[Rfam]
Notes:
Shown here is an 86-nucleotide RNA sequence from Caenorhabditis brenneri, a member of the family "mir-44 microRNA precursor family". The family has 13 seed sequences and 66 matches in Rfam 15.1. Rfam links the family to the GO terms RISC complex and miRNA-mediated post-transcriptional gene silencing. Taxonomically the source falls in Caenorhabditis (Eukaryota, Opisthokonta, Bilateria, Peloderinae).
RNA sequence: AAACUGCCACGCUGGAUGUGCUCGUUAGUCAUAGUAGCCUAUCCUGAACGGCCUAUGACUAGAGACACAUUCAGCUUGGCUCCGAU
Number, nucleotide and partner (000 for none) at each position: 001a000002a000003a000004c000005u000006g080007c079008c078009a077010c000011g000012c074013u073014g072015g071016a070017u069018g068019u067020g066021c000022u065023c064024g000025u000026u000027a060028g059029u058030c057031a056032u055033a054034g000035u000036a000037g000038c000039c000040u000041a000042u000043c000044c000045u000046g000047a000048a000049c000050g000051g000052c000053c000054u033055a032056u031057g030058a029059c028060u027061a000062g000063a000064g023065a022066c020067a019068c018069a017070u016071u015072c014073a013074g012075c000076u000077u009078g008079g007080c006081u000082c000083c000084g000085a000086u000
It scores 86 bits against the family's covariance model. The base pairs follow the family's consensus structure, which was predicted with RNAalifold. For this family Rfam cites "Repertoire and evolution of miRNA genes in four divergent nematode species" (de Wit et al., Genome Res, 2009).